[Rfam]
RNA sequence: UAAUGAAGGAAACAUGGUAUUGUGCACAUAAAUUGAAUUGGAUCUCUAGGCCUGCUUUCUCUUAUCUCAUUUGGCUUUGAUUUGGGAGUAUGGUUCUGCAUCAAGGUA
Number, nucleotide and partner (000 for none) at each position: 001u000002a000003a000004u000005g000006a000007a000008g000009g000010a000011a000012a000013c024014a023015u022016g000017g000018u000019a000020u000021u000022g015023u014024g013025c000026a000027c000028a000029u000030a000031a000032a000033u000034u000035g000036a000037a000038u000039u000040g091041g000042a089043u088044c000045u000046c000047u000048a000049g000050g081051c000052c079053u000054g075055c074056u073057u000058u000059c000060u000061c000062u000063u000064a000065u000066c000067u000068c000069a000070u000071u000072u000073g056074g055075c054076u000077u000078u000079g052080a000081u050082u000083u000084g000085g000086g000087a000088g043089u042090a000091u040092g000093g000094u000095u000096c000097u000098g000099c000100a000101u000102c000103a000104a000105g000106g000107u000108a000
RNA: Small nucleolar RNA snoR100